[Rfam]
RNA sequence: GUGCAAAUGAUGGAAAGCUUAUUUUGGCUGAUAUUUGUGAUGUUUACAAAGGAACCACUGAUGCAU
Numbered sequence: 001g002u003g004c005a006a007a008u009g010a011u012g013g014a015a016a017g018c019u020u021a022u023u024u025u026g027g028c029u030g031a032u033a034u035u036u037g038u039g040a041u042g043u044u045u046a047c048a049a050a051g052g053a054a055c056c057a058c059u060g061a062u063g064c065a066u
Stems, first nucleotide, its partner, number of pairs: 001066005
Small nucleolar RNA SNORD42: a 66-nucleotide RNA sequence from Hymenochirus boettgeri. Taxonomically the source falls in Hymenochirus (Eukaryota, Metazoa, Sarcopterygii, Amphibia). The base pairs follow the family's consensus structure, which was predicted with PFOLD. A search with the family's covariance model found it, with a score of 61 bits. The family has 7 seed sequences and 848 matches in Rfam 15.1. Rfam links the family to the GO terms nucleolus and RNA processing.